[Rfam]
RNA: Small nucleolar RNA Z102/R77
Organism: Salvia splendens
RNA sequence: GAAUUAGAUGAAGAUUAGAAUAUAUUGAUAGCUGUUAUGAUAGCUACUUAUCAUGUAUUAGCUCUAGCUGAUCAUUC
Numbered sequence: 001g002a003a004u005u006a007g008a009u010g011a012a013g014a015u016u017a018g019a020a021u022a023u024a025u026u027g028a029u030a031g032c033u034g035u036u037a038u039g040a041u042a043g044c045u046a047c048u049u050a051u052c053a054u055g056u057a058u059u060a061g062c063u064c065u066a067g068c069u070g071a072u073c074a075u076u077c
Base pairs, nucleotide, nucleotide: 002076003075004074027047030045031044032043033042